[Rfam]
RNA: Small nucleolar RNA SNORA64/SNORA10 family
Organism: Pelusios castaneus
RNA sequence: AUUCUCCCAGCUCUGCUCAGUUACACUUGGCUGAAGUAGUGUAAUUGUCGUAUUUGGUGAGAGAGAGAAACUGAGUUCAGGAUGCACGGCAGAGGGACCCUGUGAAAUGGUCUUCCUGUUCCUUUAAAAACUCUACAU
Number, nucleotide and partner (000 for none) at each position: 001a000002u067003u066004c065005u064006c063007c000008c061009a000010g000011c059012u000013c057014u056015g055016c000017u000018c000019a046020g045021u044022u043023a042024c041025a040026c039027u000028u000029g000030g000031c000032u000033g000034a000035a000036g000037u000038a000039g026040u025041g024042u023043a022044a021045u020046u019047g000048u000049c000050g000051u000052a000053u000054u000055u015056g014057g013058u000059g011060a000061g008062a000063g006064a005065g004066a003067g002068a000069a000070a000071c000072u000073g000074a000075g000076u128077u127078c000079a125080g124081g000082a123083u000084g121085c000086a000087c000088g000089g000090c000091a117092g116093a000094g000095g113096g112097a111098c110099c109100c000101u000102g000103u000104g000105a000106a000107a000108u000109g099110g098111u097112c096113u095114u000115c000116c092117u091118g000119u000120u000121c084122c000123u082124u080125u079126a000127a077128a076129a000130a000131c000132u000133c000134u000135a000136c000137a000138u000